[Rfam]
RNA sequence: UAUAGACGUUAUACUUUACAGCAACAGUACGCCGCUAACGCAAUUGCUACCUCUGGCAUAACAAGUAUAUCGGGUAAGGGUUUCUGUUCCGCACACGCAGGCGCAGAGUAUCGUUAAGAUGUCCAUAUUGUUGUUUUAGGCCCGCUAGUAAUGCGCUACGGGUAUUUAAUAUUGUUAAACCCUGAUAAUCGCUCCGGUUAUUUCCGGGAUAAAUGUACUACC
Numbered sequence: 001u002a003u004a005g006a007c008g009u010u011a012u013a014c015u016u017u018a019c020a021g022c023a024a025c026a027g028u029a030c031g032c033c034g035c036u037a038a039c040g041c042a043a044u045u046g047c048u049a050c051c052u053c054u055g056g057c058a059u060a061a062c063a064a065g066u067a068u069a070u071c072g073g074g075u076a077a078g079g080g081u082u083u084c085u086g087u088u089c090c091g092c093a094c095a096c097g098c099a100g101g102c103g104c105a106g107a108g109u110a111u112c113g114u115u116a117a118g119a120u121g122u123c124c125a126u127a128u129u130g131u132u133g134u135u136u137u138a139g140g141c142c143c144g145c146u147a148g149u150a151a152u153g154c155g156c157u158a159c160g161g162g163u164a165u166u167u168a169a170u171a172u173u174g175u176u177a178a179a180c181c182c183u184g185a186u187a188a189u190c191g192c193u194c195c196g197g198u199u200a201u202u203u204c205c206g207g208g209a210u211a212a213a214u215g216u217a218c219u220a221c222c
Base pairs, nucleotide, nucleotide: 007040008039009038010037045058046057047056048055049054085211086210087209088208089207090206091205146177147176148175149174150173151172152171184202185201186200187199188198189197190196191195
RNA: C0719 RNA